Small nucleolar RNA SNORD113/SNORD114 family: a 73-nucleotide sequence from Piliocolobus tephrosceles. The source organism's lineage runs through Eukaryota, Chordata, Theria, Cercopithecidae and Piliocolobus. The family's RNA type in Rfam is C/D-box small nucleolar RNA. Pairs were carried over by alignment from the consensus structure, which is taken from published work. From the family's description: The imprinted human domain at 14q32 contains two clusters of tandemly repeated small nucleolar RNAs named 14q(I) and 14q(II) snoRNAs. These two clusters are named SNORD113 and SNORD114 respectively in the HGNC approved gene symbol nomenclature. The snoRNAs found in both clusters are clearly related and are represented here by a single family. Rfam links the family to the GO terms nucleolus and RNA processing.
[Rfam]
RNA sequence: UGGAUCGAUGAUGACCACUGGUGGUGUAUGAGUCAUACAUGAUGAAUUGUAUGUCUGGAACUCUGAGGUCCUU
Numbered sequence: 001u002g003g004a005u006c007g008a009u010g011a012u013g014a015c016c017a018c019u020g021g022u023g024g025u026g027u028a029u030g031a032g033u034c035a036u037a038c039a040u041g042a043u044g045a046a047u048u049g050u051a052u053g054u055c056u057g058g059a060a061c062u063c064u065g066a067g068g069u070c071c072u073u
Base pairs, nucleotide, nucleotide: 002071003070004069005068006067